[Rfam]
Nucleotides: 074
Stems, first nucleotide, its partner, number of pairs: 001073007010026004028044005050066005
Number, partner (000 for none) and nucleotide at each position: 001073g002072g003071g004070u005069c006068u007067g008000u009000a010026g011025c012024u013023c014000a015000g016000c017000u018000g019000g020000u021000u022000a023013g024012a025011g026010c027000a028044c029043c030042g031041u032040g033000u034000u035000g036000a037000u038000a039000a040032c041031g042030c043029g044028g045000g046000g047000g048000u049000c050066a051065u052064a053063a054062g055000u056000u057000c058000a059000a060000g061000u062054c063053u064052u065051a066050u067007c068006a069005g070004a071003c072002c073001c074000a
tRNA: a 74-nucleotide sequence from Jeotgalibacillus sp. S-D1. The source organism's lineage runs through Bacteria, Bacillota, Bacilli, Caryophanaceae and Jeotgalibacillus. It is annotated as a transfer RNA.